The family of this 101-nucleotide RNA sequence from Menidia menidia is "Small nucleolar RNA SNORD16". On this family, see Fragapane et al., EMBO J 1993: "A novel small nucleolar RNA (U16) is encoded inside a ribosomal protein intron and originates by processing of the pre-mRNA". The family has 5 seed sequences and 1,321 matches in Rfam 15.1.
[Rfam]
RNA sequence: UGCCAUGAUGGUGUAAUUUGCGUCUGAUUCUGUGAACGGUGACAGUUGCCUGCUGUCUUAAAGCCUUUGCAGAGUAUUGAUGUGUUUUUAAAUUCUGAGCA
Numbered sequence: 001u002g003c004c005a006u007g008a009u010g011g012u013g014u015a016a017u018u019u020g021c022g023u024c025u026g027a028u029u030c031u032g033u034g035a036a037c038g039g040u041g042a043c044a045g046u047u048g049c050c051u052g053c054u055g056u057c058u059u060a061a062a063g064c065c066u067u068u069g070c071a072g073a074g075u076a077u078u079g080a081u082g083u084g085u086u087u088u089u090a091a092a093u094u095c096u097g098a099g100c101a
Base pairs, nucleotide, nucleotide: 001101002100003099021082022081023080024079030072031071032070033069034068039064040063041057042056043055044054045053